Overview: A member of the RNA family "RpsF leader" from Vibrio agarilyticus, 83 nucleotides long. Taxonomically the source falls in Vibrio (Bacteria, Pseudomonadati, Pseudomonadota, Gammaproteobacteria). A search with the family's covariance model found it, with a score of 47 bits.
Nucleotides: 083
Base pairs, nucleotide, nucleotide: 016075017074018073019072020071021070022069023056024055025054026053027052028051031045032044033043034042035041
Number, partner (000 for none) and nucleotide at each position: 001000g002000u003000c004000c005000a006000c007000u008000a009000a010000c011000c012000c013000u014000u015000a016075g017074u018073u019072c020071c021070u022069u023056g024055c025054u026053u027052c028051c029000u030000c031045u032044g033043g034042u035041u036000g037000a038000c039000c040000g041035a042034g043033c044032c045031a046000u047000c048000u049000g050000u051028g052027g053026a054025a055024g056023c057000u058000g059000a060000a061000u062000a063000a064000u065000c066000c067000g068000u069022a070021a071020g072019g073018a074017g075016c076000a077000a078000c079000a080000c081000a082000u083000g
Record summary
Rfam describes the family as follows. Conserved and widely distributed to many bacterial species RNA structure. It precedes operon containing rpsF, which encodes ribosomal protein S6. The motif also precedes operon containing rpsR, which encodes ribosomal protein S18.